[Rfam]
Rfam assigns this 78-nucleotide RNA from Rhizobium sp. P32RR-XVIII to the family "chrB-a RNA".
Pairs were carried over by alignment from the consensus structure, which is taken from published work.
It scores 74 bits against the family's covariance model.
The family has 163 seed sequences and 347 matches in Rfam 15.1.

RNA sequence: CGCAUGGGGUUGCGAUCACCCCACGAGGCGACAGCCGAAGCAUCGCGUCCAUUCAACCGCUCACCCGGAGGACGCAUG
Numbered sequence: 001c002g003c004a005u006g007g008g009g010u011u012g013c014g015a016u017c018a019c020c021c022c023a024c025g026a027g028g029c030g031a032c033a034g035c036c037g038a039a040g041c042a043u044c045g046c047g048u049c050c051a052u053u054c055a056a057c058c059g060c061u062c063a064c065c066c067g068g069a070g071g072a073c074g075c076a077u078g
Base pairs, nucleotide, nucleotide: 005023006022007021008020009019010018045075046074047073048072049071050070